The record is a 244-nucleotide sequence from Neobacillus mesonae, which matches "T-box leader" in Rfam.
[Rfam]
RNA sequence: AUAAAGACGAUGACGGAGAAAAGUAUUAUACUUUUUUGACCAUCAAGGGAGAAAGUGCCGCGACUGGAAGCACUUUUAUGGGAAAGGUAUAAGAAGUUCACCUCCAGAGUUGGCAUCGGGACCAUUUCGAUUAUGAAAUGUAAAGAUGCAUCGGCAAAAAGCCGUUAUCCCAAUGAAGUGAACACUAGUGAAGUACAUAGGUGUUUAUAAGGGUGGUACCGCGACUAUAAACCUCGUCCCUUUU
Numbered sequence: 001a002u003a004a005a006g007a008c009g010a011u012g013a014c015g016g017a018g019a020a021a022a023g024u025a026u027u028a029u030a031c032u033u034u035u036u037u038g039a040c041c042a043u044c045a046a047g048g049g050a051g052a053a054a055g056u057g058c059c060g061c062g063a064c065u066g067g068a069a070g071c072a073c074u075u076u077u078a079u080g081g082g083a084a085a086g087g088u089a090u091a092a093g094a095a096g097u098u099c100a101c102c103u104c105c106a107g108a109g110u111u112g113g114c115a116u117c118g119g120g121a122c123c124a125u126u127u128c129g130a131u132u133a134u135g136a137a138a139u140g141u142a143a144a145g146a147u148g149c150a151u152c153g154g155c156a157a158a159a160a161g162c163c164g165u166u167a168u169c170c171c172a173a174u175g176a177a178g179u180g181a182a183c184a185c186u187a188g189u190g191a192a193g194u195a196c197a198u199a200g201g202u203g204u205u206u207a208u209a210a211g212g213g214u215g216g217u218a219c220c221g222c223g224a225c226u227a228u229a230a231a232c233c234u235c236g237u238c239c240c241u242u243u244u
Stems, first nucleotide, its partner, number of pairs: 007110002015105004026092006040081003051077008113149005152164003181205006210241004221237004
Rfam links the family to the GO term tRNA binding. Uncharged tRNA acts as the effector for transcription antitermination of genes in the T-box leader family. T-boxes are found upstream of many aminoacyl-tRNA synthetase genes and some amino acid biosynthetic genes usually in Gram-positive bacteria. Rfam classes the family as a cis-regulatory leader.